A member of the RNA family "Small Cajal body specific RNA 3" from Orycteropus afer, 142 nucleotides long. The family is grouped with related families in Rfam's "SCARNA3 clan".
RNA sequence: AAUGGAAGCUGCAGGAACCAACCAUGUGAACAAAUUAAAAAAAUGCCUUUGUCUACAGAAUGUAGUGAUCCUACAAAAAUGUGAAGGUCUCUGUCUGGCUUAGGACAGCUGGCUAAAUCUGGUUCGUUCCCCUCCGUACAAC
Numbered sequence: 001a002a003u004g005g006a007a008g009c010u011g012c013a014g015g016a017a018c019c020a021a022c023c024a025u026g027u028g029a030a031c032a033a034a035u036u037a038a039a040a041a042a043a044u045g046c047c048u049u050u051g052u053c054u055a056c057a058g059a060a061u062g063u064a065g066u067g068a069u070c071c072u073a074c075a076a077a078a079a080u081g082u083g084a085a086g087g088u089c090u091c092u093g094u095c096u097g098g099c100u101u102a103g104g105a106c107a108g109c110u111g112g113c114u115a116a117a118u119c120u121g122g123u124u125c126g127u128u129c130c131c132c133u134c135c136g137u138a139c140a141a142c
Stems, first nucleotide, its partner, number of pairs: 004071003008066005025057004030052002037049002083135001085133003091126001093123003097119002100116004
The base pairs follow the family's consensus structure, which was predicted with RNAalifold. Lineage of the source: Eukaryota > Bilateria > Teleostomi > Euteleostomi > Orycteropus afer. The match comes from Rfam's covariance-model search (117 bits).